[Rfam]
RNA: c-di-GMP-I riboswitch aptamer
RNA sequence: CUCCCGAAAAGGCAACUGCCCCAAGAGCGGCAGACGCAAAGCCAAGGGCCAAUUGGAUUGGCUGCCUGGCUACCGAA
Dot-bracket structure: ...........((...((((.(....).))))...))..((((.(((((((((...))))))..)))))))......
Numbered sequence: 001c002u003c004c005c006g007a008a009a010a011g012g013c014a015a016c017u018g019c020c021c022c023a024a025g026a027g028c029g030g031c032a033g034a035c036g037c038a039a040a041g042c043c044a045a046g047g048g049c050c051a052a053u054u055g056g057a058u059u060g061g062c063u064g065c066c067u068g069g070c071u072a073c074c075g076a077a
Stems, first nucleotide, its partner, number of pairs: 012037002017032004022027001040071004045067003048062006